[Rfam]
RNA sequence: AGCGCAAAACGUUCUAUCGCUGUCCCGAUAGCUAUCGGGACGGAGGAAAGUCCGGGCAACACAGAGCAUCCUGCUUCCUAACGGGAAGGCGCCGGCAGCCGGCGACAGCAAGUGCCACAGAAAAUAUACCGCCUGUAAGGGUAAGGGUGAAAACGUGAGGUAAGAGCUCACGGCUUUUCCGGGCGACCGGGAUUGCGGUAAACCUCAGGAGUUGAAAAACCAAAUAGGUCUUGAAAGUGAAGCGGCUCGUUUCCUGUCCCGGGCAACCGGGGCCGUCAAGAUGGGUAGGUUGAUUGAACCUGCCGGCAACGACAGGGCCAGAUUAAUGAUAGAAGCCGUCCCGAUAGCUAUUGGGGCGAUACAGAACCCGGCUUACAGAUUUGCUGCUGUAC
Dot-bracket structure: ((((((((.(((((((((.(((((((((......)))))))))....[[[.[[[[[((((.....[..((((((((((.....)))))(((((.......)))).)((...(((((............((((((....))))..)).......((((((.......))))))....((((((....))))))....)))..)))))))))))))...((((......((((((..........................(((.(..]...).))).)))))).....)))).......((((.((....)).))))...........)))))))................................]]]]]]]].).).))))).)))....
The family of this 392-nucleotide sequence from Mucilaginibacter corticis is "Bacterial RNase P class A". The match comes from Rfam's covariance-model search (248 bits). Taxonomically the source falls in Mucilaginibacter (Bacteria, Pseudomonadati, Bacteroidota, Sphingobacteriales).